[Rfam]
RNA sequence: AUCUGAAUAUCAUCAUAAGUCAAUCCCUAUGCACAAGCCUCUGGCAGAGGUUUAGGGGACGUGGCGUGAUUCAGAGCUGCCUCACAUCCUGAUAGGGGUGCUAAGGCAACAAUGCUUCUGGGGCUGUGGCGACAUGGCUUCGGGGAGUGCGUAAUACACUUGGCACAACUGAAGGGCUGCGGGCGGGAAUGGCUUGGGAUGAACGGAAAAGGCAGGACAUUUGGGGCUGGAGUCCUACAAUAGACGCUCCCUGUGGGAGAAUAACCCUUGAAUAUCAUAUCCGUUGCAGGGAUAUGGGAUAGAGGGAAUUGCAGGAAGGACUCCUGUGCGGUUGAGGCUUUGCGAAAGCGGGUCUAUAAAGCCUGAUGUCCGUAUGCUGGCACAAAUCCGUGCAAAGAAUUUAUUUAAUUGGAUUAUAAUAAUAAUUUCUGAAUGCUGUGCUGGCAUUCUGGGUGAAGUUCCCAGACACGCUUGGUCGAAAGAUUCUGCAAGAAGUAUGGCGGGUAGCUCCCCCAUGCUCAGACUUGCGGACGUGGUGGCUGAAAAUGAUUCCGAUUCUGGGCUGGUCUUACGGCGAAGGUCGUGGCUUGUGGUGAUGUUCAG
Numbered sequence: 001a002u003c004u005g006a007a008u009a010u011c012a013u014c015a016u017a018a019g020u021c022a023a024u025c026c027c028u029a030u031g032c033a034c035a036a037g038c039c040u041c042u043g044g045c046a047g048a049g050g051u052u053u054a055g056g057g058g059a060c061g062u063g064g065c066g067u068g069a070u071u072c073a074g075a076g077c078u079g080c081c082u083c084a085c086a087u088c089c090u091g092a093u094a095g096g097g098g099u100g101c102u103a104a105g106g107c108a109a110c111a112a113u114g115c116u117u118c119u120g121g122g123g124c125u126g127u128g129g130c131g132a133c134a135u136g137g138c139u140u141c142g143g144g145g146a147g148u149g150c151g152u153a154a155u156a157c158a159c160u161u162g163g164c165a166c167a168a169c170u171g172a173a174g175g176g177c178u179g180c181g182g183g184c185g186g187g188a189a190u191g192g193c194u195u196g197g198g199a200u201g202a203a204c205g206g207a208a209a210a211g212g213c214a215g216g217a218c219a220u221u222u223g224g225g226g227c228u229g230g231a232g233u234c235c236u237a238c239a240a241u242a243g244a245c246g247c248u249c250c251c252u253g254u255g256g257g258a259g260a261a262u263a264a265c266c267c268u269u270g271a272a273u274a275u276c277a278u279a280u281c282c283g284u285u286g287c288a289g290g291g292a293u294a295u296g297g298g299a300u301a302g303a304g305g306g307a308a309u310u311g312c313a314g315g316a317a318g319g320a321c322u323c324c325u326g327u328g329c330g331g332u333u334g335a336g337g338c339u340u341u342g343c344g345a346a347a348g349c350g351g352g353u354c355u356a357u358a359a360a361g362c363c364u365g366a367u368g369u370c371c372g373u374a375u376g377c378u379g380g381c382a383c384a385a386a387u388c389c390g391u392g393c394a395a396a397g398a399a400u401u402u403a404u405u406u407a408a409u410u411g412g413a414u415u416a417u418a419a420u421a422a423u424a425a426u427u428u429c430u431g432a433a434u435g436c437u438g439u440g441c442u443g444g445c446a447u448u449c450u451g452g453g454u455g456a457a458g459u460u461c462c463c464a465g466a467c468a469c470g471c472u473u474g475g476u477c478g479a480a481a482g483a484u485u486c487u488g489c490a491a492g493a494a495g496u497a498u499g500g501c502g503g504g505u506a507g508c509u510c511c512c513c514c515a516u517g518c519u520c521a522g523a524c525u526u527g528c529g530g531a532c533g534u535g536g537u538g539g540c541u542g543a544a545a546a547u548g549a550u551u552c553c554g555a556u557u558c559u560g561g562g563c564u565g566g567u568c569u570u571a572c573g574g575c576g577a578a579g580g581u582c583g584u585g586g587c588u589u590g591u592g593g594u595g596a597u598g599u600u601c602a603g
Stems, first nucleotide, its partner, number of pairs: 007600001014593001018589002021586001025057005036052005060181006075116003078111002082103001085100006117144005123138006147166004187584001189567002192564001194562002206553001208551001211550001212541001215371004222366001224364005229324006247259004265306005275297004280292003285313004327392005337353004375446001380441005428523004449539001450465001452463002467535003470484001476482001487530001491526002495519001497516003502512003572583004
The family of this 603-nucleotide RNA sequence is "ROOL RNA". Pairs were carried over by alignment from the consensus structure, which is taken from published work. Rfam classes the family as a small RNA. About the family: Firmicutes, Fusobacteria (1 example), Tenericutes (1 example).